[Rfam]
RNA sequence: CUGUUAUUGAACGGCCGUUGUUGUGCGAUGGGGUUCAUACCUUAAUCUGCCAAAACGGGACCUCUGUUGAGGUAUAACCAAUAUUCCGUACUAAGGAUUUCGAUCCAGAACGUCUAGAGACUACACGGUAGACCAAUUUUGGUGGUAUGAAUGGAUAGUCCCUAGUAACCAUCUAGGCAUCCCAUACAAAAUGGUUA
Numbered sequence: 001c002u003g004u005u006a007u008u009g010a011a012c013g014g015c016c017g018u019u020g021u022u023g024u025g026c027g028a029u030g031g032g033g034u035u036c037a038u039a040c041c042u043u044a045a046u047c048u049g050c051c052a053a054a055a056c057g058g059g060a061c062c063u064c065u066g067u068u069g070a071g072g073u074a075u076a077a078c079c080a081a082u083a084u085u086c087c088g089u090a091c092u093a094a095g096g097a098u099u100u101c102g103a104u105c106c107a108g109a110a111c112g113u114c115u116a117g118a119g120a121c122u123a124c125a126c127g128g129u130a131g132a133c134c135a136a137u138u139u140u141g142g143u144g145g146u147a148u149g150a151a152u153g154g155a156u157a158g159u160c161c162c163u164a165g166u167a168a169c170c171a172u173c174u175a176g177g178c179a180u181c182c183c184a185u186a187c188a189a190a191a192u193g194g195u196u197a
Stems, first nucleotide, its partner, number of pairs: 003195006009026001011024005016069002028185006034151008049160001051158001055089004061072003090113002119156001122128001132143003136140001162176004
Dot-bracket structure: ..(((((((.((((([[..))))).).((((((((((((((.......{.{...((((..(((....]]))).............))))((....................)).....[..(.....)...(((.(...))))))))))))....].}.}.((((.......))))...))))))....))))))..

This 197-nucleotide RNA sequence from Naegleria jamiesoni belongs to the Rfam family "GIR1 branching ribozyme". Rfam links the family to the GO term RNA splicing. On this family, see Meyer et al., Proc Natl Acad Sci U S A 2014: "Speciation of a group I intron into a lariat capping ribozyme". It is one of the family's seed sequences.